[Rfam]
Bacterial small signal recognition particle RNA: an 86-nucleotide sequence from Firmicutes bacterium CAG:822. Its Rfam clan is "SRP clan". It scores 59 bits against the family's covariance model. Rfam links the family to the GO terms SRP-dependent cotranslational protein targeting to membrane, signal sequence recognition and signal recognition particle, plasma membrane targeting. Pairs were carried over by alignment from the consensus structure, which is taken from published work. Lineage of the source: Bacteria > Bacillati > Bacillota.
RNA sequence: UACAUGGUACAACAUUUAUGACUGAACCAGGUCAGAAUCGGAAGAUAGCAGCCUUAAGGUCCUCUAAGUGUGUGUACCUUUUUAUU
Numbered sequence: 001u002a003c004a005u006g007g008u009a010c011a012a013c014a015u016u017u018a019u020g021a022c023u024g025a026a027c028c029a030g031g032u033c034a035g036a037a038u039c040g041g042a043a044g045a046u047a048g049c050a051g052c053c054u055u056a057a058g059g060u061c062c063u064c065u066a067a068g069u070g071u072g073u074g075u076a077c078c079u080u081u082u083u084a085u086u
Stems, first nucleotide, its partner, number of pairs: 001084002004080001006078004010072001012071006018063001020061004029054004037046003